[Rfam]
RNA sequence: AGUUGUCAUGGUUACGGGACGAUGUUCCCAUUGGACUCAAGAAAGGAUUCUGAGCCUUAGAGCUUUGAAGGAGCCACUUGCUGGCCCGUCCAAUGGCUGGG
Numbered sequence: 001a002g003u004u005g006u007c008a009u010g011g012u013u014a015c016g017g018g019a020c021g022a023u024g025u026u027c028c029c030a031u032u033g034g035a036c037u038c039a040a041g042a043a044a045g046g047a048u049u050c051u052g053a054g055c056c057u058u059a060g061a062g063c064u065u066u067g068a069a070g071g072a073g074c075c076a077c078u079u080g081c082u083g084g085c086c087c088g089u090c091c092a093a094u095g096g097c098u099g100g101g
Stems, first nucleotide, its partner, number of pairs: 009092003014089004
RNA: Small nucleolar RNA SNORD124